[Rfam]
RNA sequence: CUCUACUCUCACAGCCAGAUGUUGCAGACUCAAGGGUCUGCAUCCAGCGCAGGGAGGAUAAAGGAGCCUAUCUCCUUGCCGCAUGGCAGAAAAGUAAAUUGUUAUGGAUGCCGAUAGUAGCCACAAGGCCAAUUCCGCAACACAUAA
Number, nucleotide and partner (000 for none) at each position: 001c000002u000003c057004u000005a000006c056007u055008c054009u053010c000011a000012c000013a000014g050015c049016c000017a000018g000019a000020u000021g044022u000023u042024g041025c040026a039027g038028a037029c036030u000031c000032a000033a000034g000035g000036g029037u028038c027039u026040g025041c024042a023043u000044c021045c000046a000047g000048c000049g015050c014051a000052g000053g009054g008055a007056g006057g003058a000059u000060a000061a000062a000063g000064g000065a000066g000067c000068c000069u000070a000071u000072c000073u000074c000075c000076u000077u000078g087079c086080c085081g000082c000083a000084u000085g080086g079087c078088a000089g000090a000091a000092a000093a000094g000095u000096a000097a000098a000099u000100u000101g000102u147103u146104a145105u144106g143107g000108a000109u139110g138111c137112c000113g135114a134115u000116a000117g000118u000119a000120g129121c128122c000123a000124c000125a000126a000127g000128g121129c120130c000131a000132a000133u000134u114135c113136c000137g111138c110139a109140a000141c000142a000143c106144a105145u104146a103147a102